[Rfam]
RNA sequence: ACAACAACAAUAACAAGCAAUGCCCCACACAAUAAGAACAAGACGUAACGACUCCAGAACAACAAAAACAACAAGGACGGAGGCGCAGCUAACUGAUUCUUUUGGAGAGGAGUUGCCGCAAGGGGUUCUGCCCCUGCAACCAGACCGAGAACAACAAAACUGCCUUCAGGCAGCACCCGAACUGGUUGAUUAAUGGCAGCAUCAGCGUCCAAAGAAAUCCGUUUGCUAUUGGCUCCCCACUCUAGGGAGCACCCGGUGAGCCACGGCGAGCCGGGAAGGGCCAAACAACAAGAACAACAGGCCCUCAAUAACAACAAAAACAAAGCACGCACCAACUUGGGGGGGAGCUUCGGCUCCCCCAGUAGCUUCCGCUCCACGGAUCCCCGCCUGC
Numbered sequence: 001a002c003a004a005c006a007a008c009a010a011u012a013a014c015a016a017g018c019a020a021u022g023c024c025c026c027a028c029a030c031a032a033u034a035a036g037a038a039c040a041a042g043a044c045g046u047a048a049c050g051a052c053u054c055c056a057g058a059a060c061a062a063c064a065a066a067a068a069c070a071a072c073a074a075g076g077a078c079g080g081a082g083g084c085g086c087a088g089c090u091a092a093c094u095g096a097u098u099c100u101u102u103u104g105g106a107g108a109g110g111a112g113u114u115g116c117c118g119c120a121a122g123g124g125g126u127u128c129u130g131c132c133c134c135u136g137c138a139a140c141c142a143g144a145c146c147g148a149g150a151a152c153a154a155c156a157a158a159a160c161u162g163c164c165u166u167c168a169g170g171c172a173g174c175a176c177c178c179g180a181a182c183u184g185g186u187u188g189a190u191u192a193a194u195g196g197c198a199g200c201a202u203c204a205g206c207g208u209c210c211a212a213a214g215a216a217a218u219c220c221g222u223u224u225g226c227u228a229u230u231g232g233c234u235c236c237c238c239a240c241u242c243u244a245g246g247g248a249g250c251a252c253c254c255g256g257u258g259a260g261c262c263a264c265g266g267c268g269a270g271c272c273g274g275g276a277a278g279g280g281c282c283a284a285a286c287a288a289c290a291a292g293a294a295c296a297a298c299a300g301g302c303c304c305u306c307a308a309u310a311a312c313a314a315c316a317a318a319a320a321c322a323a324a325g326c327a328c329g330c331a332c333c334a335a336c337u338u339g340g341g342g343g344g345g346a347g348c349u350u351c352g353g354c355u356c357c358c359c360c361a362g363u364a365g366c367u368u369c370c371g372c373u374c375c376a377c378g379g380a381u382c383c384c385c386g387c388c389u390g391c
Stems, first nucleotide, its partner, number of pairs: 049085002052082004100214005114207003137188007160173005232250001235249001237247002273375003279304002282301001323368004340363001341360008
The family of this 391-nucleotide sequence from Ectopseudomonas mendocina is "Pseudomonas sRNA CrcZ". The source organism's lineage runs through Bacteria, Pseudomonadati, Gammaproteobacteria, Pseudomonadaceae and Ectopseudomonas mendocina. The family's consensus secondary structure was predicted with WAR. The sequence is in the family's curated seed alignment. A reference for the family is Livny et al. (2006), "Identification of 17 Pseudomonas aeruginosa sRNAs and prediction of sRNA-encoding genes in 10 diverse pathogens using the bioinformatic tool sRNAPredict2", Nucleic Acids Res. The family has 19 seed sequences and 127 matches in Rfam 15.1.